[Rfam]
RNA: CRISPR RNA direct repeat element
RNA sequence: CUUUCAACCCACCUGUUACUAGGAGGGUUGUUGUAAC
Numbered sequence: 001c002u003u004u005c006a007a008c009c010c011a012c013c014u015g016u017u018a019c020u021a022g023g024a025g026g027g028u029u030g031u032u033g034u035a036a037c
Stems, first nucleotide, its partner, number of pairs: 005033004009027002013023002